[Rfam]
RNA: MIR2619 microRNA precursor family
RNA sequence: AAACAGCUCCCUAUGUUUUGAUUCUUUGGCAGUUUUGGACCCCAAGGAAGAAAAAAGAAUGACAUGUGGCACCUCACUUAGGGUGCCACAUCAGCGUUGACCGAGUCAACAAUGGACUGGGGGUCCAAAACUACCAAAGAAUCAAAACAUAGGGGGCUAUUU
Numbered sequence: 001a002a003a004c005a006g007c008u009c010c011c012u013a014u015g016u017u018u019u020g021a022u023u024c025u026u027u028g029g030c031a032g033u034u035u036u037g038g039a040c041c042c043c044a045a046g047g048a049a050g051a052a053a054a055a056a057g058a059a060u061g062a063c064a065u066g067u068g069g070c071a072c073c074u075c076a077c078u079u080a081g082g083g084u085g086c087c088a089c090a091u092c093a094g095c096g097u098u099g100a101c102c103g104a105g106u107c108a109a110c111a112a113u114g115g116a117c118u119g120g121g122g123g124u125c126c127a128a129a130a131c132u133a134c135c136a137a138a139g140a141a142u143c144a145a146a147a148c149a150u151a152g153g154g155g156g157c158u159a160u161u162u
Base pairs, nucleotide, nucleotide: 001162002161005158006157007156008155012151013150014149015148016147017146018145019144020143021142022141023140024139025138026137027136028135029134031132032131033130034129035128036127037126038125039124040123041122042121043120045118064091065090067088068087069086070085071084072083073082